[Rfam]
RNA sequence: UUAACCCUUGAUGAGAUAGGGGUGCAGAGCCCUAGCCAGGGUUCAGCCGAGCGAAGCGAGACAACGUUGCUCGGCGUAGCCGAAAAGCAACGGCCCGAAGGGCGAGGACGCGAAGCGGCCGAGUAAAUAACCUAUCUCUCCGCCA
Numbered sequence: 001u002u003a004a005c006c007c008u009u010g011a012u013g014a015g016a017u018a019g020g021g022g023u024g025c026a027g028a029g030c031c032c033u034a035g036c037c038a039g040g041g042u043u044c045a046g047c048c049g050a051g052c053g054a055a056g057c058g059a060g061a062c063a064a065c066g067u068u069g070c071u072c073g074g075c076g077u078a079g080c081c082g083a084a085a086a087g088c089a090a091c092g093g094c095c096c097g098a099a100g101g102g103c104g105a106g107g108a109c110g111c112g113a114a115g116c117g118g119c120c121g122a123g124u125a126a127a128u129a130a131c132c133u134a135u136c137u138c139u140c141c142g143c144c145a
Base pairs, nucleotide, nucleotide: 015136016135017134018133019132020131021128023126033104036102037101042099043098044097048058049057065092066091067090068089069088070087
Rfam assigns this 145-nucleotide RNA sequence from Enterovibrio coralii to the family "RtT RNA". On this family, see Bosl and Kersten, Nucleic Acids Res 1991: "A novel RNA product of the tyrT operon of Escherichia coli". This family represents a bacterial cis-regulatory element known as RtT RNA. The exact function of RtT is unknown although it is thought that it may be involved in changing the cellular response in relation to amino acid starvation. Rfam classes the family as a cis-regulatory element.